The family of this 82-nucleotide RNA from Otolemur garnettii is "mir-1179 microRNA precursor family".
Its family is annotated with miRNA-mediated post-transcriptional gene silencing and RISC complex in the Gene Ontology.
The source organism's lineage runs through Eukaryota, Opisthokonta, Teleostomi, Tetrapoda and Otolemur.
The family's consensus secondary structure was predicted with RNAalifold.

RNA sequence: CCAAAAAGGAAGAUGCAUUCUCUCAUUGGUUGGUGUGUUUUGCCUUGUCAACCAAUAGGAGAAUGCCAUUUACCUUUUUCUG
Number, nucleotide and partner (000 for none) at each position: 001c000002c000003a000004a079005a078006a077007a076008g075009g074010a000011a000012g071013a070014u000015g066016c065017a064018u063019u062020c061021u060022c059023u058024c000025a056026u055027u054028g053029g052030u051031u050032g049033g048034u047035g046036u000037g000038u000039u000040u000041u000042g000043c000044c000045u000046u035047g034048u033049c032050a031051a030052c029053c028054a027055a026056u025057a000058g023059g022060a021061g020062a019063a018064u017065g016066c015067c000068a000069u000070u013071u012072a000073c000074c009075u008076u007077u006078u005079u004080c000081u000082g000